[Rfam]
RNA sequence: GAUAGAAACAUAAUUGGGUGCAGCGCUGAUGAAAUUUCGAAACUAGUUCAAUUCAUUUCGAAACUAGUUCAAUUCAUCAACGCUGCACUCAAUGAUGUUUCUU
Numbered sequence: 001g002a003u004a005g006a007a008a009c010a011u012a013a014u015u016g017g018g019u020g021c022a023g024c025g026c027u028g029a030u031g032a033a034a035u036u037u038c039g040a041a042a043c044u045a046g047u048u049c050a051a052u053u054c055a056u057u058u059c060g061a062a063a064c065u066a067g068u069u070c071a072a073u074u075c076a077u078c079a080a081c082g083c084u085g086c087a088c089u090c091a092a093u094g095a096u097g098u099u100u101c102u103u
Stems, first nucleotide, its partner, number of pairs: 006100006013093013027079002030076003
Rfam assigns this 103-nucleotide RNA sequence from Prunus armeniaca to the family "MIR397 microRNA precursor family".
Rfam 15.1 lists 496 matches to the family in 218 species.
The base pairs follow the family's consensus structure, which was predicted with WAR.
The source organism's lineage runs through Eukaryota, Viridiplantae, Streptophytina, rosids and Prunus.